[Rfam]
Description:
M-box riboswitch aptamer (ykoK leader): a 185-nucleotide RNA from Hafnia alvei. A reference for the family is Ramesh et al. (2011), "Insights into metalloregulation by M-box riboswitch RNAs via structural analysis of manganese-bound complexes", J Mol Biol. Taxonomically the source falls in Hafnia alvei (Bacteria, Gammaproteobacteria, Enterobacterales, Hafniaceae).
RNA sequence: UAACGAUCUCGUUAUGGCGAGGCUCCUAUACAAACAUAAGUUACCGCCCUGAUGGUAUCGAGAGAGACCACACAGGGAAAUACAGGCAUCCAUCGAAUCAAGGUGUUGCCAAGGUAACUUUCAGUAAAAUCAAGAUAUUGCUGAAUACGUUGUAUAGUGCUAAACCCAAGACGUAGGGAUCUAUU
Numbered sequence: 001u002a003a004c005g006a007u008c009u010c011g012u013u014a015u016g017g018c019g020a021g022g023c024u025c026c027u028a029u030a031c032a033a034a035c036a037u038a039a040g041u042u043a044c045c046g047c048c049c050u051g052a053u054g055g056u057a058u059c060g061a062g063a064g065a066g067a068c069c070a071c072a073c074a075g076g077g078a079a080a081u082a083c084a085g086g087c088a089u090c091c092a093u094c095g096a097a098u099c100a101a102g103g104u105g106u107u108g109c110c111a112a113g114g115u116a117a118c119u120u121u122c123a124g125u126a127a128a129a130u131c132a133a134g135a136u137a138u139u140g141c142u143g144a145a146u147a148c149g150u151u152g153u154a155u156a157g158u159g160c161u162a163a164a165c166c167c168a169a170g171a172c173g174u175a176g177g178g179a180u181c182u183a184u185u
Stems, first nucleotide, its partner, number of pairs: 005181006011172002013101001016167002021161003026157008040118005047077004056067001058065002085110004092104003120145008